This 83-nucleotide sequence from Lachnospiraceae bacterium NE2001 belongs to the Rfam family "S10-Clostridia ribosomal protein leader". The literature on the family includes a 2020 paper in BMC Microbiol by Eckert and Weinberg, "Discovery of 20 novel ribosomal leader candidates in bacteria and archaea". The organism belongs to Lachnospiraceae, within Bacteria. Pairs were carried over by alignment from the consensus structure, which is taken from published work.
[Rfam]
Nucleotides: 083
Base pairs, nucleotide, nucleotide: 015047016046017045018044019043024038025037026036027035028034057082058081059080060079063078065077066076067075
Number, partner (000 for none) and nucleotide at each position: 001000u002000g003000a004000u005000a006000g007000c008000u009000a010000g011000g012000a013000a014000a015047c016046g017045u018044a019043g020000a021000u022000u023000g024038c025037u026036g027035c028034u029000g030000c031000a032000g033000g034028a035027g036026c037025a038024g039000g040000u041000a042000a043019c044018u045017a046016c047015g048000c049000g050000g051000a052000g053000c054000g055000a056000a057082u058081g059080u060079c061000a062000a063078g064000a065077u066076c067075a068000u069000a070000g071000a072000a073000u074000c075067u076066g077065g078063c079060g080059a081058c082057a083000a